RNA sequence: CCCAGCAGUAGUCAGCUGCCCGUGGCUGCUCGGUGCCUGGGCCGGUGUUAUGCUGCUGGGAGACAAAGGUGCUGCCGGGUGCUCCUGGCGCCAGCAGUGCCGUCCUGGCACUCGGUGGGGCCGGGUGUUGGCAGUGCCCUGCAUGCUCGAGAGUGGAGUAACUCCUGCUGGUGGAGUUAGAGCCUAGACUGGAUGCAGACAAC
Numbered sequence: 001c002c003c004a005g006c007a008g009u010a011g012u013c014a015g016c017u018g019c020c021c022g023u024g025g026c027u028g029c030u031c032g033g034u035g036c037c038u039g040g041g042c043c044g045g046u047g048u049u050a051u052g053c054u055g056c057u058g059g060g061a062g063a064c065a066a067a068g069g070u071g072c073u074g075c076c077g078g079g080u081g082c083u084c085c086u087g088g089c090g091c092c093a094g095c096a097g098u099g100c101c102g103u104c105c106u107g108g109c110a111c112u113c114g115g116u117g118g119g120g121c122c123g124g125g126u127g128u129u130g131g132c133a134g135u136g137c138c139c140u141g142c143a144u145g146c147u148c149g150a151g152a153g154u155g156g157a158g159u160a161a162c163u164c165c166u167g168c169u170g171g172u173g174g175a176g177u178u179a180g181a182g183c184c185u186a187g188a189c190u191g192g193a194u195g196c197a198g199a200c201a202a203c
Stems, first nucleotide, its partner, number of pairs: 001060009011051002015046004020041001021039002024037003069137009082127001084125006091118002095114001098110004139198006146191001155184002159179007
The record is a 203-nucleotide sequence from Pitta sordida, which matches "Small nucleolar RNA SNORA74" in Rfam. Pairs were carried over by alignment from the consensus structure, which was predicted with PFOLD. Taxonomically the source falls in Pitta (Eukaryota, Chordata, Tetrapoda, Theropoda). Rfam's curators write: U19 belongs to the H/ACA class of snoRNAs. snoRNAs bind a number of proteins (including dyskerin, Gar1p and Nop10p in the case of the H/ACA class) to form snoRNP complexes. The family is grouped with related families in Rfam's "SNORA74 clan".